Record summary
Rfam assigns this 135-nucleotide sequence from Callorhinchus milii to the family "Small nucleolar RNA SNORA27".
RNA sequence: GUUCCCCGUUUCACUUUACCAAUAAGACAAAUUUGGUGUCUUUUUAUUGGUCAUUCAAGUGGGGUAAAGUAUACUCCUUUUAAAAACCCAGACAAAUGAUUGUAUUUGACUUGGUUCCUGUCAGAGGAAAUAGUA
Numbered sequence: 001g002u003u004c005c006c007c008g009u010u011u012c013a014c015u016u017u018a019c020c021a022a023u024a025a026g027a028c029a030a031a032u033u034u035g036g037u038g039u040c041u042u043u044u045u046a047u048u049g050g051u052c053a054u055u056c057a058a059g060u061g062g063g064g065u066a067a068a069g070u071a072u073a074c075u076c077c078u079u080u081u082a083a084a085a086a087c088c089c090a091g092a093c094a095a096a097u098g099a100u101u102g103u104a105u106u107u108g109a110c111u112u113g114g115u116u117c118c119u120g121u122c123a124g125a126g127g128a129a130a131u132a133g134u135a
Base pairs, nucleotide, nucleotide: 037066038065039064040063041062047058048057049056050055077127078126079125080124081123089113090111091110093108094107095106096105097104
NCBI's taxonomy places the organism under Eukaryota, Metazoa, Chordata, Chondrichthyes, Callorhinchus. It is annotated as an H/ACA-box small nucleolar RNA. Its Rfam clan is "SNORA27 clan". About the family: ACA27 is a member of the H/ACA class of snoRNA that guide the sites of modification of uridines to pseudouridines.